The family of this 63-nucleotide RNA is "pemK RNA".
It is annotated as a cis-regulatory element.
The sequence is in the family's curated seed alignment.
[Rfam]
RNA sequence: AUAAUGAUACUUCUGACCGUUCAGGCUGCCAUCGUAAAAGGACAGCGGGUGAAAUGCCCAUGA
Numbered sequence: 001a002u003a004a005u006g007a008u009a010c011u012u013c014u015g016a017c018c019g020u021u022c023a024g025g026c027u028g029c030c031a032u033c034g035u036a037a038a039a040g041g042a043c044a045g046c047g048g049g050u051g052a053a054a055u056g057c058c059c060a061u062g063a
Base pairs, nucleotide, nucleotide: 012060013024014023015022016021026045027044028043029041030040047059048058049057